[Rfam]
RNA: Flavo-1 RNA
RNA sequence: UUUUAGCCCUGAUGGUAGCGGCAUCCUUUUUCUUGCUCCUUUAGCAAGGAAAAGAUAUAGCGUACAGCAGGAAAUGGC
Numbered sequence: 001u002u003u004u005a006g007c008c009c010u011g012a013u014g015g016u017a018g019c020g021g022c023a024u025c026c027u028u029u030u031u032c033u034u035g036c037u038c039c040u041u042u043a044g045c046a047a048g049g050a051a052a053a054g055a056u057a058u059a060g061c062g063u064a065c066a067g068c069a070g071g072a073a074a075u076g077g078c
Stems, first nucleotide, its partner, number of pairs: 009070003013066002018061002023056003029051008